[Rfam]
RNA sequence: CCGCCUGUCGCUACUACUGAUUGGAUGGUUUAGCCAUGCUGGGGUCAGCCCUGGUGGAGAGCUGAGAAGACUGUCGAACUUGACUAUCUAGAGGAAGUAAAAAUAGCAAGGUUUCCAUAGGUGAACCUGUGGAAGAAUCAUUA
Numbered sequence: 001c002c003g004c005c006u007g008u009c010g011c012u013a014c015u016a017c018u019g020a021u022u023g024g025a026u027g028g029u030u031u032a033g034c035c036a037u038g039c040u041g042g043g044g045u046c047a048g049c050c051c052u053g054g055u056g057g058a059g060a061g062c063u064g065a066g067a068a069g070a071c072u073g074u075c076g077a078a079c080u081u082g083a084c085u086a087u088c089u090a091g092a093g094g095a096a097g098u099a100a101a102a103a104u105a106g107c108a109a110g111g112u113u114u115c116c117a118u119a120g121g122u123g124a125a126c127c128u129g130u131g132g133a134a135g136a137a138u139c140a141u142u143a
Base pairs, nucleotide, nucleotide: 001110003107004106012099013098014097015096017094018093021090023089024088025087026086027085028084029083030082032080033079038074039073041071045065046064047063048062049061051059052058112135113134114133115132116131117130118129119128120127121126
The family of this 143-nucleotide part of an RNA from Lipotes vexillifer is "Eukaryotic small subunit ribosomal RNA". It scores 1201 bits against the family's covariance model.